[Rfam]
RNA sequence: GGCCUUUGUGUUGCCCAUUCACUUUCGGAAACUUGUGAAUGUGGUGUCAAAAAAGGCAUAAAUCAAAUUCUUUUGCAGCCAUUACUGCCCUUGAAUUUGGUUUCUUUGGCGUAGGCGUUGCAUAAGGAACAGUU
Numbered sequence: 001g002g003c004c005u006u007u008g009u010g011u012u013g014c015c016c017a018u019u020c021a022c023u024u025u026c027g028g029a030a031a032c033u034u035g036u037g038a039a040u041g042u043g044g045u046g047u048c049a050a051a052a053a054a055g056g057c058a059u060a061a062a063u064c065a066a067a068u069u070c071u072u073u074u075g076c077a078g079c080c081a082u083u084a085c086u087g088c089c090c091u092u093g094a095a096u097u098u099g100g101u102u103u104c105u106u107u108g109g110c111g112u113a114g115g116c117g118u119u120g121c122a123u124a125a126g127g128a129a130c131a132g133u134u
Stems, first nucleotide, its partner, number of pairs: 002057006009049002012046004016041007069127004073122001075121005085114004089109002093104002
A member of the RNA family "Small nucleolar RNA SNORA13" from Echinops telfairi, 134 nucleotides long. Lineage of the source: Eukaryota > Craniata > Gnathostomata > Euteleostomi > Echinops. Rfam links the family to the GO terms RNA processing and nucleolus. From the family's description: ACA13 is a member of the H/ACA class of snoRNA that guide the sites of modification of uridines to pseudouridines. It is annotated as an H/ACA-box small nucleolar RNA. Pairs were carried over by alignment from the consensus structure, which was predicted with CMfinder. It is one of the family's seed sequences.